[Rfam]
A member of the RNA family "Plastid-ycf2 5UTR RNA" from Hevea brasiliensis, 75 nucleotides long. Rfam describes the family as follows. Plastid ycf2 is a non-coding RNA (ncRNA) recognised in plastids. It was found in the prime untranslated region (5UTR) of ycf2 genes, it presents a tRNA-like motif which suggests it can be involved in mRNA maturation, particularly involved in defining the precise 5' end of the transcript. By type it is a cis-regulatory element. Pairs were carried over by alignment from the consensus structure, which was predicted with LocARNA. NCBI's taxonomy places the organism under Eukaryota, Viridiplantae, Streptophyta, Euphorbiaceae, Hevea.
Nucleotides: 075
Stems, first nucleotide, its partner, number of pairs: 003075006011025004040069003046064005
Number, partner (000 for none) and nucleotide at each position: 001000g002000u003075g004074c005073a006072u007071c008070c009000a010000a011025u012024a013023g014022g015000a016000a017000u018000u019000g020000a021000a022014u023013c024012u025011a026000c027000a028000a029000a030000u031000u032000u033000g034000c035000c036000a037000a038000c039000u040069a041068u042067g043000a044000a045000u046064u047063g048062g049061g050060u051000u052000u053000u054000u055000u056000a057000a058000c059000c060050a061049u062048u063047c064046a065000u066000c067042c068041a069040u070008g071007g072006a073005u074004g075003c